[Rfam]
RNA sequence: GCCCUGUGGUUGCUGGGCACUGGUUUAUACAUACAGUGCUUCAGUUGGUGGGAAUGGGCCAGCAGUGACACUGUGAUUCGUGCAUGGAGUUUGUGAUGUGUCAGCAGCUUCCAUAGCCCCAUCACAGGUACAGAG
Numbered sequence: 001g002c003c004c005u006g007u008g009g010u011u012g013c014u015g016g017g018c019a020c021u022g023g024u025u026u027a028u029a030c031a032u033a034c035a036g037u038g039c040u041u042c043a044g045u046u047g048g049u050g051g052g053a054a055u056g057g058g059c060c061a062g063c064a065g066u067g068a069c070a071c072u073g074u075g076a077u078u079c080g081u082g083c084a085u086g087g088a089g090u091u092u093g094u095g096a097u098g099u100g101u102c103a104g105c106a107g108c109u110u111c112c113a114u115a116g117c118c119c120c121a122u123c124a125c126a127g128g129u130a131c132a133g134a135g
Base pairs, nucleotide, nucleotide: 001059002058003057004056007050008049010047012045013044014043015042016041017040019037020036021035022034071127073125074124075123076122077121082117083116084114085113086112087111089109091107092106093105094104
Record summary: This 135-nucleotide RNA sequence from Spizella passerina belongs to the Rfam family "Small nucleolar RNA SNORA84". A search with the family's covariance model found it, with a score of 92 bits. NCBI's taxonomy places the organism under Eukaryota, Metazoa, Craniata, Archosauria, Spizella. The family has 28 seed sequences and 757 matches in Rfam 15.1.